[Rfam]
RNA sequence: ACCCUCCGGUUCCCUUUCCCAUCGGAUCUUGACGCUGGUCUUGGUGGUCGUAAAGGAGGGAGAGCAUGCUGAAACUGGCCGGCCUCACAGCUAUGUAGUCUGCUAUAGAGCACGGGGUCAGAUUCAUACAUGC
Numbered sequence: 001a002c003c004c005u006c007c008g009g010u011u012c013c014c015u016u017u018c019c020c021a022u023c024g025g026a027u028c029u030u031g032a033c034g035c036u037g038g039u040c041u042u043g044g045u046g047g048u049c050g051u052a053a054a055g056g057a058g059g060g061a062g063a064g065c066a067u068g069c070u071g072a073a074a075c076u077g078g079c080c081g082g083c084c085u086c087a088c089a090g091c092u093a094u095g096u097a098g099u100c101u102g103c104u105a106u107a108g109a110g111c112a113c114g115g116g117g118u119c120a121g122a123u124u125c126a127u128a129c130a131u132g133c
Stems, first nucleotide, its partner, number of pairs: 003059005019047005025040004075121006094112003